[Rfam]
RNA sequence: AGAGGUCUCAAGUUUGAGGCCAUAGCAGAAGCACUCACAGCAUGGCCCUGUCCAAUUCCAGUGAAUCUGCAAAUUCCGCU
Numbered sequence: 001a002g003a004g005g006u007c008u009c010a011a012g013u014u015u016g017a018g019g020c021c022a023u024a025g026c027a028g029a030a031g032c033a034c035u036c037a038c039a040g041c042a043u044g045g046c047c048c049u050g051u052c053c054a055a056u057u058c059c060a061g062u063g064a065a066u067c068u069g070c071a072a073a074u075u076c077c078g079c080u
Stems, first nucleotide, its partner, number of pairs: 016048001018047004024080003028076003031043001052069001055066004
Mammalian CPEB3 ribozyme: an 80-nucleotide RNA sequence from Alligator mississippiensis. The base pairs follow the family's consensus structure, which is taken from published work. Rfam 15.1 lists 5,706 matches to the family in 197 species. The organism belongs to Alligator, within Eukaryota.